[Rfam]
RNA sequence: UCGACUGUACUCGAACAGGAUCACUUCUAUAGUAGAUCUGCUUGUUCACCGUCACAGCGACAGACAACACCUUCAGUCGUGAAGAUGAGUCGAACGUCCGGCCAUGAUUUGAAGGGAGGCUCCCUGUGCGAUCUUGUACAAGUUCGCGCAGGGCAGCUUUGAUGAUAACGGGGCGGGGGCUUCGGCUUCCGUCUCAAUGGCAAGGACGAUUCUGAACGGCU
Numbered sequence: 001u002c003g004a005c006u007g008u009a010c011u012c013g014a015a016c017a018g019g020a021u022c023a024c025u026u027c028u029a030u031a032g033u034a035g036a037u038c039u040g041c042u043u044g045u046u047c048a049c050c051g052u053c054a055c056a057g058c059g060a061c062a063g064a065c066a067a068c069a070c071c072u073u074c075a076g077u078c079g080u081g082a083a084g085a086u087g088a089g090u091c092g093a094a095c096g097u098c099c100g101g102c103c104a105u106g107a108u109u110u111g112a113a114g115g116g117a118g119g120c121u122c123c124c125u126g127u128g129c130g131a132u133c134u135u136g137u138a139c140a141a142g143u144u145c146g147c148g149c150a151g152g153g154c155a156g157c158u159u160u161g162a163u164g165a166u167a168a169c170g171g172g173g174c175g176g177g178g179g180c181u182u183c184g185g186c187u188u189c190c191g192u193c194u195c196a197a198u199g200g201c202a203a204g205g206a207c208g209a210u211u212c213u214g215a216a217c218g219g220c221u
Stems, first nucleotide, its partner, number of pairs: 002040002006035001008034004017028004045069001052062001076220005095208005101201005109168003118158003123152007173192004178187001
ACEA small nucleolar RNA U3: a 221-nucleotide RNA sequence from Cystoisospora suis. For this family Rfam cites "The uRNA database" (Zwieb, Nucleic Acids Res, 1997). Rfam 15.1 lists 2,156 matches to the family in 132 species. Small nucleolar RNAs (snoRNAs) are involved in the processing and modification of rRNA in the nucleolus. There are two main classes of snoRNAs: the box C/D class, and the box H/ACA class. U3 snoRNA is a member of the box C/D class. Indeed, the box C/D element is a subset of the six short sequence elements found in all U3 snoRNAs, namely boxes A, A', B, C, C', and D. The U3 snoRNA secondary structure is characterised by a small 5' domain (with boxes A and A'), and a larger 3' domain (with boxes B, C, C', and D), the two domains being linked by a single-stranded hinge.